[Rfam]
RNA sequence: CUCUGACACAGCUCCACGGUGGCCGGUCUGGCCCCCACGUUUGGACGCGGCGCGAUGAC
Numbered sequence: 001c002u003c004u005g006a007c008a009c010a011g012c013u014c015c016a017c018g019g020u021g022g023c024c025g026g027u028c029u030g031g032c033c034c035c036c037a038c039g040u041u042u043g044g045a046c047g048c049g050g051c052g053c054g055a056u057g058a059c
Base pairs, nucleotide, nucleotide: 007049009047012044013043016041018035019034021033022032023031024030025029